[Rfam]
RNA: Archaeal signal recognition particle RNA
Organism: Stygiolobus azoricus
RNA sequence: UGGUCGGGGAGGGUGGGGGGUCUAGCCAGCCCCUGUAACCCGCAUGGCUUAAUGCGGGCACCAGUAACUCCCAUACCAUAAUACCUGUUACCUCCAGAUCCUAGCCUAACGAUGAGUGCCGCCCGAUGGGGCGAGAUAGUUGCGGGUCUUCCCUCUGGAGGGAGGGAAGAUACCGCAUUGGCCGGGGGAAUCGGCCAGGUCCGGAAGGGAGCAACCGUGCCCGGCUAUCCGCGUUCAUCGGUCACCGGCAUGAGAAGGGCUAGGGAAAGUCUGGGGUAAUAAGGGUUAUGGUAUGGGAGAGCCGACCG
Numbered sequence: 001u002g003g004u005c006g007g008g009g010a011g012g013g014u015g016g017g018g019g020g021u022c023u024a025g026c027c028a029g030c031c032c033c034u035g036u037a038a039c040c041c042g043c044a045u046g047g048c049u050u051a052a053u054g055c056g057g058g059c060a061c062c063a064g065u066a067a068c069u070c071c072c073a074u075a076c077c078a079u080a081a082u083a084c085c086u087g088u089u090a091c092c093u094c095c096a097g098a099u100c101c102u103a104g105c106c107u108a109a110c111g112a113u114g115a116g117u118g119c120c121g122c123c124c125g126a127u128g129g130g131g132c133g134a135g136a137u138a139g140u141u142g143c144g145g146g147u148c149u150u151c152c153c154u155c156u157g158g159a160g161g162g163a164g165g166g167a168a169g170a171u172a173c174c175g176c177a178u179u180g181g182c183c184g185g186g187g188g189a190a191u192c193g194g195c196c197a198g199g200u201c202c203g204g205a206a207g208g209g210a211g212c213a214a215c216c217g218u219g220c221c222c223g224g225c226u227a228u229c230c231g232c233g234u235u236c237a238u239c240g241g242u243c244a245c246c247g248g249c250a251u252g253a254g255a256a257g258g259g260c261u262a263g264g265g266a267a268a269g270u271c272u273g274g275g276g277u278a279a280u281a282a283g284g285g286u287u288a289u290g291g292u293a294u295g296g297g298a299g300a301g302c303c304g305a306c307c308g
Base pairs, nucleotide, nucleotide: 001308002307003306004305005304006303007302012062013061014060015059016034017033018032019031020030021029039058040057041056042055043054044053068299069298070297071296072295073294074293075292076291077290078289079288080287082284086281087280088279089278090277091276092275094274095273096272097271099265100264101263102262103261104260105259106258107257110254116251117250118249119248120247121246123241124240125239126238127237128236129235130234131232132231133230135229136228137227138226139179141177142176143175144174145173146171147170148169149168150167151166152165153164154163155162156161182224183223184222186221187220192217193216194215200209201208202207